[Rfam]
RNA sequence: GUUACCGUGAGGUAGGGUCUGAAGGUAGCGCGGAGCAAACCCACGACCUGACGAACAGAAACCAGAUAUGAGGCCUAACGCUGGGACGAGCGGGCGUAUGACUGCGAAGUCCAUAGCCAUCAAGCGGCGGGACGGUAGAUCUGGCGGGUGCGUGGGGAAGGCGGUCAAA
Numbered sequence: 001g002u003u004a005c006c007g008u009g010a011g012g013u014a015g016g017g018u019c020u021g022a023a024g025g026u027a028g029c030g031c032g033g034a035g036c037a038a039a040c041c042c043a044c045g046a047c048c049u050g051a052c053g054a055a056c057a058g059a060a061a062c063c064a065g066a067u068a069u070g071a072g073g074c075c076u077a078a079c080g081c082u083g084g085g086a087c088g089a090g091c092g093g094g095c096g097u098a099u100g101a102c103u104g105c106g107a108a109g110u111c112c113a114u115a116g117c118c119a120u121c122a123a124g125c126g127g128c129g130g131g132a133c134g135g136u137a138g139a140u141c142u143g144g145c146g147g148g149u150g151c152g153u154g155g156g157g158a159a160g161g162c163g164g165u166c167a168a169a
Stems, first nucleotide, its partner, number of pairs: 002015005032165001035162002040156006046149005062144006073136003076132001079129005084112004090105004